[Rfam]
RNA sequence: UUGGUUCCGGUUCACGGUGCGCGCCCGCGUCCGACCCGGCGACC
Numbered sequence: 001u002u003g004g005u006u007c008c009g010g011u012u013c014a015c016g017g018u019g020c021g022c023g024c025c026c027g028c029g030u031c032c033g034a035c036c037c038g039g040c041g042a043c044c
Stems, first nucleotide, its partner, number of pairs: 003044003007039004015033003020029003
RNA: L31-Actinobacteria ribosomal protein leader